[Rfam]
RNA sequence: AGGGCUGUAUCUGUGAGGAACGGCACCGAUUUGUAGGGCAAACAUGCAAAAAGCAGAGCUGCUUGGAUCCCGCGAGGACCUGGACAGCAUG
Number, nucleotide and partner (000 for none) at each position: 001a000002g027003g026004g024005c023006u022007g021008u020009a000010u019011c018012u000013g000014u000015g000016a000017g000018g011019a010020a008021c007022g006023g005024c004025a000026c003027c002028g000029a000030u000031u000032u000033g000034u000035a000036g000037g000038g000039c000040a000041a000042a000043c000044a000045u000046g000047c000048a000049a000050a000051a000052a000053g000054c000055a000056g000057a000058g000059c087060u086061g085062c083063u082064u000065g080066g079067a000068u078069c077070c076071c000072g000073c000074g000075a000076g070077g069078a068079c066080c065081u000082g063083g062084a000085c061086a060087g059088c000089a000090u000091g000
The family of this 91-nucleotide RNA sequence from Salicibibacter halophilus is "pan motif". The family's RNA type in Rfam is cis-regulatory element. It scores 42 bits against the family's covariance model. Lineage of the source: Bacteria > Bacilli > Caryophanales > Bacillaceae > Salicibibacter.